The family of this 140-nucleotide sequence from Pangasianodon hypophthalmus is "Small nucleolar RNA SNORA47". The match comes from Rfam's covariance-model search (49 bits). Gene Ontology terms of the family: nucleolus and RNA processing. The base pairs follow the family's consensus structure, which was predicted with WAR.
RNA sequence: GGGAGGUGUGAGAAAGUUAUGCAGCUUUGUGCCGUGUUGCUAUAACUGGUUAUAACCUCCGAUAUUAAUGUGACUCGCUCGGGUGCUGCAGCGACUCCUGUUUUCCUGCAGCGAGCCUGUGCAGUGCUCGUGUACACACA
Numbered sequence: 001g002g003g004a005g006g007u008g009u010g011a012g013a014a015a016g017u018u019a020u021g022c023a024g025c026u027u028u029g030u031g032c033c034g035u036g037u038u039g040c041u042a043u044a045a046c047u048g049g050u051u052a053u054a055a056c057c058u059c060c061g062a063u064a065u066u067a068a069u070g071u072g073a074c075u076c077g078c079u080c081g082g083g084u085g086c087u088g089c090a091g092c093g094a095c096u097c098c099u100g101u102u103u104u105c106c107u108g109c110a111g112c113g114a115g116c117c118u119g120u121g122c123a124g125u126g127c128u129c130g131u132g133u134a135c136a137c138a139c140a
Stems, first nucleotide, its partner, number of pairs: 002060005015047004019041001021040005078132001080130001082128002085125003098119001100117001102115001104114002